A member of the RNA family "nhaA-I RNA", 51 nucleotides long. Acidobacteria, Alphaproteobacteria, Betaproteobacteria and Gammaproteobacteria, Verrucomicrobia, cand. division NC10.

RNA sequence: GGGUGCGGCGGAUUCCCGCUGCAGGAACUCGGGAUGGUCGGGCCGCCAUCC
Numbered sequence: 001g002g003g004u005g006c007g008g009c010g011g012a013u014u015c016c017c018g019c020u021g022c023a024g025g026a027a028c029u030c031g032g033g034a035u036g037g038u039c040g041g042g043c044c045g046c047c048a049u050c051c
Stems, first nucleotide, its partner, number of pairs: 005022007032051007